[Rfam]
RNA sequence: AUAUAAAUUUGGCAAACUUAUCGAAAGGUAAGGACGCAAAACUAUGGGUCUAACGCUAAUAACUAUGACUGCCAGGUUGCAAAU
Numbered sequence: 001a002u003a004u005a006a007a008u009u010u011g012g013c014a015a016a017c018u019u020a021u022c023g024a025a026a027g028g029u030a031a032g033g034a035c036g037c038a039a040a041a042c043u044a045u046g047g048g049u050c051u052a053a054c055g056c057u058a059a060u061a062a063c064u065a066u067g068a069c070u071g072c073c074a075g076g077u078u079g080c081a082a083a084u
Base pairs, nucleotide, nucleotide: 012037013036017032018031019030020029021028022027040078041077042076043075045074046073047072048069049068050067055063057061
Dot-bracket structure: ...........((...((((((....))))))...))..((((.((((((....(.(...).)...)))..)))))))......
Rfam assigns this 84-nucleotide RNA sequence from Sporomusaceae bacterium FL31 to the family "c-di-GMP-I riboswitch aptamer". NCBI's taxonomy places the organism under Bacteria, Bacillati, Bacillota, Negativicutes, Sporomusaceae. The match comes from Rfam's covariance-model search (74 bits).